Description
Rfam assigns this 109-nucleotide RNA sequence from Streptococcus thermophilus to the family "Streptococcus sRNA 10". For this family Rfam cites "Novel regulatory small RNAs in Streptococcus pyogenes" (Tesorero et al., PLoS One, 2013). Rfam classes the family as a small RNA. It scores 58 bits against the family's covariance model.

RNA sequence: AUCAUGAGAUUUGAUUAAAGAUUGCGAUUAUGUCGUCAUUACGAAAUUUUACAUUUCCGGCAUAUUCUUAAACAGCGAGACUUGUUUUUAAUUAAACAGGUCUCUUUUG
Numbered sequence: 001a002u003c004a005u006g007a008g009a010u011u012u013g014a015u016u017a018a019a020g021a022u023u024g025c026g027a028u029u030a031u032g033u034c035g036u037c038a039u040u041a042c043g044a045a046a047u048u049u050u051a052c053a054u055u056u057c058c059g060g061c062a063u064a065u066u067c068u069u070a071a072a073c074a075g076c077g078a079g080a081c082u083u084g085u086u087u088u089u090a091a092u093u094a095a096a097c098a099g100g101u102c103u104c105u106u107u108u109g
Base pairs, nucleotide, nucleotide: 007023008022011020026067027066029064030063031062032061033060034059035058038056043050044049077104078103079102080101081100082099083098084097085096086095087094
Dot-bracket structure: ......((..(........).))..((.(((((((..(....((....)).....).))))))).)).........(((((((((((......))))))))))).....